[Rfam]
RNA: Small nucleolar RNA snoR99
Organism: Ricinus communis
RNA sequence: GUGCUUUAGGGAUGAACAAGUCCCUAAUAAAUAUCGAUCCAUCCAUCACUUUGUCGGCAAUAUUCGUUUUUGGUUUGUUGCCUGAUCAUUUAAGGGUGGAAUAUGC
Numbered sequence: 001g002u003g004c005u006u007u008a009g010g011g012a013u014g015a016a017c018a019a020g021u022c023c024c025u026a027a028u029a030a031a032u033a034u035c036g037a038u039c040c041a042u043c044c045a046u047c048a049c050u051u052u053g054u055c056g057g058c059a060a061u062a063u064u065c066g067u068u069u070u071u072g073g074u075u076u077g078u079u080g081c082c083u084g085a086u087c088a089u090u091u092a093a094g095g096g097u098g099g100a101a102u103a104u105g106c
Stems, first nucleotide, its partner, number of pairs: 038100006053086003056082005